Annotation
A member of the RNA family "c-di-GMP-II-GAG riboswitch aptamer", 107 nucleotides long. The family's consensus secondary structure is taken from published work. It is one of the family's seed sequences.
[Rfam]
RNA sequence: UGCAACAGGGGACGCAACGAUCCUCGAGCCGCAGAGAGCGGUCGCCGGGUCGGCCUGAGAGGGCUGACGGGCUCGAGGGGAGCGAGUGGCGAGACCGACCCCGAGGA
Numbered sequence: 001u002g003c004a005a006c007a008g009g010g011g012a013c014g015c016a017a018c019g020a021u022c023c024u025c026g027a028g029c030c031g032c033a034g035a036g037a038g039c040g041g042u043c044g045c046c047g048g049g050u051c052g053g054c055c056u057g058a059g060a061g062g063g064c065u066g067a068c069g070g071g072c073u074c075g076a077g078g079g080g081a082g083c084g085a086g087u088g089g090c091g092a093g094a095c096c097g098a099c100c101c102c103g104a105g106g107a
Base pairs, nucleotide, nucleotide: 003106008102009101010100011099013084014083015082022078023077024076025075026074027073028072029071040096041095042092043091044090045089046088